[Rfam]
The family of this 294-nucleotide RNA sequence from Epichloe festucae is "5' ureB small RNA". Pairs were carried over by alignment from the consensus structure, which was predicted with mfold. The literature on the family includes a 2013 paper in J Bacteriol by Wen et al., "Helicobacter pylori 5'ureB-sRNA, a cis-encoded antisense small RNA, negatively regulates ureAB expression by transcription termination".
RNA sequence: CUCGUUGGCCUGCUGCGGACAGAUGUAGUGGAUGUGCGUGUCGAUGCCGCCGGCCGUGACGAUCUUGCCCUCGCCCGCAACGACGUCGGUGCAGCUGCCCACGACCAUGCCGGGCGUGACGCCGUCCAUGACGUCCGGGUUGCCGGCCUUGCCGAUGCCCACGAUGAUGCCGUCCCGGAUGCCAAUGUCGGCCUUGUAGAUGCCCGUCCAGUCGACGAUGAGGGCGUUGGUCACCACCACGUCGAGCGACUCGGCGUCGGGCCUCCCCGAGGCCUGGCCCAUGCCCUCGCGGAG
Numbered sequence: 001c002u003c004g005u006u007g008g009c010c011u012g013c014u015g016c017g018g019a020c021a022g023a024u025g026u027a028g029u030g031g032a033u034g035u036g037c038g039u040g041u042c043g044a045u046g047c048c049g050c051c052g053g054c055c056g057u058g059a060c061g062a063u064c065u066u067g068c069c070c071u072c073g074c075c076c077g078c079a080a081c082g083a084c085g086u087c088g089g090u091g092c093a094g095c096u097g098c099c100c101a102c103g104a105c106c107a108u109g110c111c112g113g114g115c116g117u118g119a120c121g122c123c124g125u126c127c128a129u130g131a132c133g134u135c136c137g138g139g140u141u142g143c144c145g146g147c148c149u150u151g152c153c154g155a156u157g158c159c160c161a162c163g164a165u166g167a168u169g170c171c172g173u174c175c176c177g178g179a180u181g182c183c184a185a186u187g188u189c190g191g192c193c194u195u196g197u198a199g200a201u202g203c204c205c206g207u208c209c210a211g212u213c214g215a216c217g218a219u220g221a222g223g224g225c226g227u228u229g230g231u232c233a234c235c236a237c238c239a240c241g242u243c244g245a246g247c248g249a250c251u252c253g254g255c256g257u258c259g260g261g262c263c264u265c266c267c268c269g270a271g272g273c274c275u276g277g278c279c280c281a282u283g284c285c286c287u288c289g290c291g292g293a294g
Base pairs, nucleotide, nucleotide: 001294002293003292006289007288008287011163012162015159017075018074021071022070029052030051031050033049034048036047037046038045039044056068057067058066077152080149082147084145091143092142093141094140095139096138097135099133106130107129109125110124112122169278170277171276172275176269177268178267181264183261191225192224193223194222195221205214206213228259229258230257236251240248241247